This 54-nucleotide RNA from Salmo trutta belongs to the Rfam family "UnaL2 LINE 3' element". From the family's description: The eel long interspersed element (LINE) UnaL2 and its partner short interspersed element (SINE) share a conserved 3' tail containing a stem-loop that is critical for their retrotransposition. Presumably, the first step of retrotransposition is the recognition of their 3' tails by UnaL2-encoded reverse transcriptase. The solution structure of a 17-nucleotide RNA derived from the 3' tail of UnaL2 was determined by NMR. Pairs were carried over by alignment from the consensus structure, which is taken from published work.
RNA sequence: UAUGCAUUCAAAUGUAAGUCGCUCUGGAUAAGACCGUCUGCUAAAUGACAAAAA
Numbered sequence: 001u002a003u004g005c006a007u008u009c010a011a012a013u014g015u016a017a018g019u020c021g022c023u024c025u026g027g028a029u030a031a032g033a034c035c036g037u038c039u040g041c042u043a044a045a046u047g048a049c050a051a052a053a054a
Stems, first nucleotide, its partner, number of pairs: 013043001014041003020036002023033003